A member of the RNA family "U1 spliceosomal RNA" from Platysternon megacephalum, 163 nucleotides long. The family has 100 seed sequences and 40,184 matches in Rfam 15.1. Lineage of the source: Eukaryota > Vertebrata > Cryptodira > Durocryptodira > Platysternon. The base pairs follow the family's consensus structure, which is taken from published work. Rfam's curators write: U1 is a small nuclear RNA (snRNA) component of the spliceosome (involved in pre-mRNA splicing). Its 5' end forms complementary base pairs with the 5' splice junction, thus defining the 5' donor site of an intron. There are significant differences in sequence and secondary structure between metazoan and yeast U1 snRNAs, the latter being much longer (568 nucleotides as compared to 164 nucleotides in human). Nevertheless, secondary structure predictions suggest that all U1 snRNAs share a 'common core' consisting of helices I, II, the proximal region of III, and IV. This family does not contain the larger yeast sequences.
RNA sequence: AAAGGUAAAAUGCAACUAGAUACCGUGAUCACCAAGGUGGUUUUCCCAGGGCGAGGCUCAUCCAUUGCACUGCGGGUGUGCUGACCCCUGUGAUUUCCCCAAAUGCGGGAAACUCAACUGCAGAAUUUGUGGUAGUGGGGGACUGCGUUCGCGCUUUCCCCUG
Numbered sequence: 001a002a003a004g005g006u007a008a009a010a011u012g013c014a015a016c017u018a019g020a021u022a023c024c025g026u027g028a029u030c031a032c033c034a035a036g037g038u039g040g041u042u043u044u045c046c047c048a049g050g051g052c053g054a055g056g057c058u059c060a061u062c063c064a065u066u067g068c069a070c071u072g073c074g075g076g077u078g079u080g081c082u083g084a085c086c087c088c089u090g091u092g093a094u095u096u097c098c099c100c101a102a103a104u105g106c107g108g109g110a111a112a113c114u115c116a117a118c119u120g121c122a123g124a125a126u127u128u129g130u131g132g133u134a135g136u137g138g139g140g141g142a143c144u145g146c147g148u149u150c151g152c153g154c155u156u157u158c159c160c161c162u163g
Stems, first nucleotide, its partner, number of pairs: 012121003018044003022041005048089004053085001055082003059078005091116003094112003098108002137162006145154003
Dot-bracket structure: ...........(((...(((.(((((..........))))))))...((((.(.(((.(((((..........))))).)))..))))).((((((.((.......)).))).)))..)))...............((((((..(((....)))..)))))).

A search with the family's covariance model found it, with a score of 116 bits.